[Rfam]
RNA: Small nucleolar RNA U19
RNA sequence: AUGCGGCUUAGUUAGGGGGCAAACAUCAACAGGAACCAAAUUAACUUUUGGUAUCCUUUGAGAAAGACCUUUUGAAGGGACUCUUCAAUCUAAUAUUUAUUGUCCCUCAAGCAGUCGUUCACAUUU
Numbered sequence: 001a002u003g004c005g006g007c008u009u010a011g012u013u014a015g016g017g018g019g020c021a022a023a024c025a026u027c028a029a030c031a032g033g034a035a036c037c038a039a040a041u042u043a044a045c046u047u048u049u050g051g052u053a054u055c056c057u058u059u060g061a062g063a064a065a066g067a068c069c070u071u072u073u074g075a076a077g078g079g080a081c082u083c084u085u086c087a088a089u090c091u092a093a094u095a096u097u098u099a100u101u102g103u104c105c106c107u108c109a110a111g112c113a114g115u116c117g118u119u120c121a122c123a124u125u126u
Stems, first nucleotide, its partner, number of pairs: 005020001007018003035052004062120003066116003071111004076107006084099001